Shown here is a 109-nucleotide RNA from Paraburkholderia phytofirmans, a member of the family "Burkholderia sRNA Bp1_Cand684_SIPHT".
By type it is a small RNA.
It scores 45 bits against the family's covariance model.

RNA sequence: AAGAAAGUGAGUGCCGCCCCGCAUAGGGGCGACGCUAAUAGACCACGAACAAUUCAAGGAAAGGCCAACGCCGCAGGCAGACAGACAAACCAGCGCCGCGCAGACAAAC
Numbered sequence: 001a002a003g004a005a006a007g008u009g010a011g012u013g014c015c016g017c018c019c020c021g022c023a024u025a026g027g028g029g030c031g032a033c034g035c036u037a038a039u040a041g042a043c044c045a046c047g048a049a050c051a052a053u054u055c056a057a058g059g060a061a062a063g064g065c066c067a068a069c070g071c072c073g074c075a076g077g078c079a080g081a082c083a084g085a086c087a088a089a090c091c092a093g094c095g096c097c098g099c100g101c102a103g104a105c106a107a108a109c
Base pairs, nucleotide, nucleotide: 012075013074014073015031016030017029018028019027020026058066059065093101094100095099